Shown here is a 307-nucleotide sequence from Gossypium mustelinum, a member of the family "Plant signal recognition particle RNA". The match comes from Rfam's covariance-model search (202 bits). The base pairs follow the family's consensus structure, which is taken from published work.
RNA sequence: GCUGAGCUUGGUAACGCAAGCCUGUAACCUAAGUAGGAGCAUUAAGGAGCUGGGAAUGGGUUCGUUUUAUUGAGCUAGAUCCGUUGUGGUCCACAUCCGACUUGCCCAUACCAAACCGAAAGUUUGGGCCGAGGGGAUUGAGCGAAAGCUCCGGUUCUCGUGGUUCUUAGAGUGGAGAGUACCGCGUGAGGCUGGUUUCACAGAGCAGCGAUUAUCUCCCGCUUUCGGCAGUGGAAGGAUGACAGGUCGGUUCCACUUGGAUCCAUCAUAGCUCGGUGAGUUGACCUCAAAAUGAACCAUAACUUUU
Numbered sequence: 001g002c003u004g005a006g007c008u009u010g011g012u013a014a015c016g017c018a019a020g021c022c023u024g025u026a027a028c029c030u031a032a033g034u035a036g037g038a039g040c041a042u043u044a045a046g047g048a049g050c051u052g053g054g055a056a057u058g059g060g061u062u063c064g065u066u067u068u069a070u071u072g073a074g075c076u077a078g079a080u081c082c083g084u085u086g087u088g089g090u091c092c093a094c095a096u097c098c099g100a101c102u103u104g105c106c107c108a109u110a111c112c113a114a115a116c117c118g119a120a121a122g123u124u125u126g127g128g129c130c131g132a133g134g135g136g137a138u139u140g141a142g143c144g145a146a147a148g149c150u151c152c153g154g155u156u157c158u159c160g161u162g163g164u165u166c167u168u169a170g171a172g173u174g175g176a177g178a179g180u181a182c183c184g185c186g187u188g189a190g191g192c193u194g195g196u197u198u199c200a201c202a203g204a205g206c207a208g209c210g211a212u213u214a215u216c217u218c219c220c221g222c223u224u225u226c227g228g229c230a231g232u233g234g235a236a237g238g239a240u241g242a243c244a245g246g247u248c249g250g251u252u253c254c255a256c257u258u259g260g261a262u263c264c265a266u267c268a269u270a271g272c273u274c275g276g277u278g279a280g281u282u283g284a285c286c287u288c289a290a291a292a293u294g295a296a297c298c299a300u301a302a303c304u305u306u307u
Stems, first nucleotide, its partner, number of pairs: 001040003004023001006021005028037003044306004051299003056293001057289003060285003064281002067279010078263006086256004097250008106238002109236001111234003116228008126166006133159008141150003167172001174219005185210003192203003